[Rfam]
RNA sequence: UCCCCGCCUCUACUCCCUGGGCGGGUCCGGCAUCCCCCAAGCCGGAGCUUGUUGCCCCGUGAGUCUCCCCCCGGCUCACGGGGCAUUUUCUU
Numbered sequence: 001u002c003c004c005c006g007c008c009u010c011u012a013c014u015c016c017c018u019g020g021g022c023g024g025g026u027c028c029g030g031c032a033u034c035c036c037c038c039a040a041g042c043c044g045g046a047g048c049u050u051g052u053u054g055c056c057c058c059g060u061g062a063g064u065c066u067c068c069c070c071c072c073g074g075c076u077c078a079c080g081g082g083g084c085a086u087u088u089u090c091u092u
Stems, first nucleotide, its partner, number of pairs: 003025006027045005033039001054084012

Background
Burkholderia RNA 7 (anti-hemB): a 92-nucleotide RNA sequence from Hydrocarboniphaga effusa. This RNA motif was identified by computational search in b-proteobacteria Burkholderia. It scores 54 bits against the family's covariance model. Taxonomically the source falls in Hydrocarboniphaga effusa (Bacteria, Gammaproteobacteria, Nevskiaceae, Hydrocarboniphaga).